[Rfam]
RNA sequence: AGAGACGAAUGUGCAGUCGCUUUACAUUUAUUGUGAAGAGGAAAGUCCGAACUUUAACUGCAAAAAAGCAUAGGCAUUAUUUCAGAAAACGGUAGCAGGUAAUACCUGUCGCCCGCAAGGGCAGAGGUGCGAACAGAGACGCCUUUUCCGGAGACGGAAAAAGUAUCCUUAUUAUCAAGGGAGACGUUUUCCCGCAAAUGAGAAAGCGGGAAAAGUAGCAUGGAAAAAGGAUAAGCUUUUGCAGCAAUGCAGAAGGUGAAACGGCUAAAUCCUUACUGGAAAGCAAGAUUGAAGUAUAGUCGCUUGAUCGUUAAAAGUGAUUUUAACGGCAGAGAAAUGACUGCGCUUUUAAGGUUUAUUUUUAAAAGACAGAAUUCGGCUUAUAAUCCGUCUUUGCUU
Numbered sequence: 001a002g003a004g005a006c007g008a009a010u011g012u013g014c015a016g017u018c019g020c021u022u023u024a025c026a027u028u029u030a031u032u033g034u035g036a037a038g039a040g041g042a043a044a045g046u047c048c049g050a051a052c053u054u055u056a057a058c059u060g061c062a063a064a065a066a067a068g069c070a071u072a073g074g075c076a077u078u079a080u081u082u083c084a085g086a087a088a089a090c091g092g093u094a095g096c097a098g099g100u101a102a103u104a105c106c107u108g109u110c111g112c113c114c115g116c117a118a119g120g121g122c123a124g125a126g127g128u129g130c131g132a133a134c135a136g137a138g139a140c141g142c143c144u145u146u147u148c149c150g151g152a153g154a155c156g157g158a159a160a161a162a163g164u165a166u167c168c169u170u171a172u173u174a175u176c177a178a179g180g181g182a183g184a185c186g187u188u189u190u191c192c193c194g195c196a197a198a199u200g201a202g203a204a205a206g207c208g209g210g211a212a213a214a215g216u217a218g219c220a221u222g223g224a225a226a227a228a229g230g231a232u233a234a235g236c237u238u239u240u241g242c243a244g245c246a247a248u249g250c251a252g253a254a255g256g257u258g259a260a261a262c263g264g265c266u267a268a269a270u271c272c273u274u275a276c277u278g279g280a281a282a283g284c285a286a287g288a289u290u291g292a293a294g295u296a297u298a299g300u301c302g303c304u305u306g307a308u309c310g311u312u313a314a315a316a317g318u319g320a321u322u323u324u325a326a327c328g329g330c331a332g333a334g335a336a337a338u339g340a341c342u343g344c345g346c347u348u349u350u351a352a353g354g355u356u357u358a359u360u361u362u363u364a365a366a367a368g369a370c371a372g373a374a375u376u377c378g379g380c381u382u383a384u385a386a387u388c389c390g391u392c393u394u395u396g397c398u399u
Base pairs, nucleotide, nucleotide: 001395002394003393004392005391006390007389009387010386011384012345013344014343015342016341017340018339020038021037022036023035024034025033026032043382044381045380047379048378049377050376051375052283053282054281055280071278072277073276095109096108097107098106099105110124111122112121113120114119125273126272127271131265141219142218143215144214145213146212147211148210149209151207235257236255237254238253239252240251241250242249243248287301288300289299290298309328310327311326312325313324314323315322316321
RNA: Bacterial RNase P class A